[Rfam]
RNA sequence: GCAGAGGCUUCGCUUAAUCCCCGUCGGGCCCGUCCCGCCGGGGAGCCGGGGAACCAGGUUCCUGGGGUGAAUCGGCGCGGCGUCCGGCCAACAGGCCACGGCACCGUUUCGUAGGGCGACCUCCCCGCCCGAACCCGUCAGCUAACCCGGUAGGCGUCGUGGAAGGAAGGG
Numbered sequence: 001g002c003a004g005a006g007g008c009u010u011c012g013c014u015u016a017a018u019c020c021c022c023g024u025c026g027g028g029c030c031c032g033u034c035c036c037g038c039c040g041g042g043g044a045g046c047c048g049g050g051g052a053a054c055c056a057g058g059u060u061c062c063u064g065g066g067g068u069g070a071a072u073c074g075g076c077g078c079g080g081c082g083u084c085c086g087g088c089c090a091a092c093a094g095g096c097c098a099c100g101g102c103a104c105c106g107u108u109u110c111g112u113a114g115g116g117c118g119a120c121c122u123c124c125c126c127g128c129c130c131g132a133a134c135c136c137g138u139c140a141g142c143u144a145a146c147c148c149g150g151u152a153g154g155c156g157u158c159g160u161g162g163a164a165g166g167a168a169g170g171g
Base pairs, nucleotide, nucleotide: 011156012155013154014153018044019043020042021041022040023039045151046150047149048148049147050146055064056063065136066135067134073111074110075109114130115129116128117127

This 171-nucleotide sequence from Actinopolymorpha pittospori belongs to the Rfam family "c-di-AMP riboswitch aptamer (ydaO/yuaA leader)". Rfam links the family to the GO terms cyclic-di-AMP binding and regulation of gene expression. Taxonomically the source falls in Actinopolymorpha (Bacteria, Bacillati, Actinomycetes, Actinopolymorphaceae).